Rfam assigns this 187-nucleotide RNA sequence from Tepidanaerobacter acetatoxydans to the family "Lysine riboswitch aptamer". From the family's description: Riboswitches are metabolite binding domains within certain messenger RNAs that serve as precision sensors for their corresponding targets. Taxonomically the source falls in Tepidanaerobacter acetatoxydans (Bacteria, Clostridia, Thermosediminibacterales, Tepidanaerobacteraceae). A search with the family's covariance model found it, with a score of 97 bits.
RNA sequence: AAGUGGGGUAGAGGAGCAGCGCUUAACGAUUCUUAGUGAAGCUUGAGAGCAAAGCAAUGACAUUAAGGAGAAGGAAGUGUUGCCGAAGCAGAUAAUAUUCUCUCAUGUUAUUUGCUGGGCCUGCAGUUAAGAGCUGUAGGACUGUCUCAAUAAACAGCCCGGUUUAUUGAGUUGAGCUAUCUCAAUU
Number, nucleotide and partner (000 for none) at each position: 001a000002a000003g000004u000005g000006g182007g181008g180009u179010a178011g177012a000013g000014g000015a000016g083017c082018a081019g080020c079021g078022c077023u076024u075025a000026a000027c000028g000029a000030u000031u068032c067033u066034u065035a064036g063037u062038g061039a000040a000041g000042c000043u000044u000045g000046a000047g000048a000049g000050c000051a000052a000053a000054g000055c000056a000057a000058u000059g000060a000061c038062a037063u036064u035065a034066a033067g032068g031069a000070g000071a000072a000073g000074g000075a024076a023077g022078u021079g020080u019081u018082g017083c016084c000085g000086a000087a116088g115089c114090a113091g112092a111093u110094a109095a108096u107097a106098u105099u000100c000101u000102c000103u000104c000105a098106u097107g096108u095109u094110a093111u092112u091113u090114g089115c088116u087117g143118g142119g000120c140121c139122u138123g137124c136125a135126g134127u133128u000129a000130a000131g000132a000133g127134c126135u125136g124137u123138a122139g121140g120141a000142c118143u117144g000145u000146c171147u170148c169149a168150a167151u166152a165153a164154a163155c000156a000157g000158c000159c000160c000161g000162g000163u154164u153165u152166a151167u150168u149169g148170a147171g146172u000173u000174g000175a000176g000177c011178u010179a009180u008181c007182u006183c000184a000185a000186u000187u000